[Rfam]
RNA sequence: ACGCAGACGUCCGGGUUUCGUGACAGGCGAGCCGUUCCAUAAAACUUGGUUCGUUGUCGACGAAACCUGCACGAUCUGUAA
Numbered sequence: 001a002c003g004c005a006g007a008c009g010u011c012c013g014g015g016u017u018u019c020g021u022g023a024c025a026g027g028c029g030a031g032c033c034g035u036u037c038c039a040u041a042a043a044a045c046u047u048g049g050u051u052c053g054u055u056g057u058c059g060a061c062g063a064a065a066c067c068u069g070c071a072c073g074a075u076c077u078g079u080a081a
Stems, first nucleotide, its partner, number of pairs: 003079004012069009029052005
This 81-nucleotide RNA from Vespula pensylvanica belongs to the Rfam family "mir-981 microRNA precursor family". Taxonomically the source falls in Vespula (Eukaryota, Allotriocarida, Insecta, Vespoidea). Its family is annotated with RISC complex and miRNA-mediated post-transcriptional gene silencing in the Gene Ontology. The match comes from Rfam's covariance-model search (67 bits).